The record is a 58-nucleotide RNA sequence, which matches "L17-Actino-Proteobacteria ribosomal protein leader" in Rfam.
By type it is a cis-regulatory leader.
Rfam's curators put it in the seed alignment.
For this family Rfam cites "Discovery of 20 novel ribosomal leader candidates in bacteria and archaea" (Eckert and Weinberg, BMC Microbiol, 2020).
Nucleotides: 058
Base pairs, nucleotide, nucleotide: 001025002024003023004022005021006020007019009017010016011015030058031057032056034053035052036051037050038049
Number, partner (000 for none) and nucleotide at each position: 001025g002024g003023u004022g005021g006020a007019g008000c009017c010016c011015g012000u013000g014000c015011c016010g017009g018000u019007c020006u021005c022004c023003a024002u025001c026000c027000u028000u029000c030058c031057c032056a033000c034053c035052c036051g037050g038049u039000a040000c041000c042000u043000c044000a045000u046000a047000c048000g049038g050037c051036c052035g053034g054000a055000g056032u057031g058030g